[Rfam]
Rfam assigns this 70-nucleotide RNA sequence from Mus musculus to the family "mir-140 microRNA precursor family".
Its family is annotated with miRNA-mediated post-transcriptional gene silencing and RISC complex in the Gene Ontology.
Taxonomically the source falls in Mus (Eukaryota, Bilateria, Tetrapoda, Mus).

RNA sequence: CCUGCCAGUGGUUUUACCCUAUGGUAGGUUACGUCAUGCUGUUCUACCACAGGGUAGAACCACGGACAGG
Numbered sequence: 001c002c003u004g005c006c007a008g009u010g011g012u013u014u015u016a017c018c019c020u021a022u023g024g025u026a027g028g029u030u031a032c033g034u035c036a037u038g039c040u041g042u043u044c045u046a047c048c049a050c051a052g053g054g055u056a057g058a059a060c061c062a063c064g065g066a067c068a069g070g
Stems, first nucleotide, its partner, number of pairs: 005065002008063013022049007031042003